RNA sequence: UGGCGCCCAACGUGAGAGCUCGAGUCUGAGGGACACGGUGAGGGAUGCCGUAGAGGUCAGCCGGCACAGAAGGAUUAAGAAACCCAGAGGAAAGAGCGUCGUGAGAACCUGCCACAGACUCAUGCUCUGGUAAGCGGACGGCGAAUAUGGGACAGGAAAUCAGCCAGCAUGAGUUUUUCAUAGAGAGUUUAAGUAAGGCUUUAAAGAUGCGGGGAAUAAAGGUGAAAAUAAAACGAUUGUGUAAAUAUUUUGACUAUAUUCAGGAUGUCUGCCCUU
Numbered sequence: 001u002g003g004c005g006c007c008c009a010a011c012g013u014g015a016g017a018g019c020u021c022g023a024g025u026c027u028g029a030g031g032g033a034c035a036c037g038g039u040g041a042g043g044g045a046u047g048c049c050g051u052a053g054a055g056g057u058c059a060g061c062c063g064g065c066a067c068a069g070a071a072g073g074a075u076u077a078a079g080a081a082a083c084c085c086a087g088a089g090g091a092a093a094g095a096g097c098g099u100c101g102u103g104a105g106a107a108c109c110u111g112c113c114a115c116a117g118a119c120u121c122a123u124g125c126u127c128u129g130g131u132a133a134g135c136g137g138a139c140g141g142c143g144a145a146u147a148u149g150g151g152a153c154a155g156g157a158a159a160u161c162a163g164c165c166a167g168c169a170u171g172a173g174u175u176u177u178u179c180a181u182a183g184a185g186a187g188u189u190u191a192a193g194u195a196a197g198g199c200u201u202u203a204a205a206g207a208u209g210c211g212g213g214g215a216a217u218a219a220a221g222g223u224g225a226a227a228a229u230a231a232a233a234c235g236a237u238u239g240u241g242u243a244a245a246u247a248u249u250u251u252g253a254c255u256a257u258a259u260u261c262a263g264g265a266u267g268u269c270u271g272c273c274c275u276u
Base pairs, nucleotide, nucleotide: 006032007031008030012027014025037048038046039045082131083130084129088128089127094123096120101115102114103113135155137153142149143148160203162201163199164198165197210252211251212250213249214248216246217245220238221237223235224234262275263274264273266271
RNA: Mason-Pfizer monkey virus packaging signal
Organism: Callithrix jacchus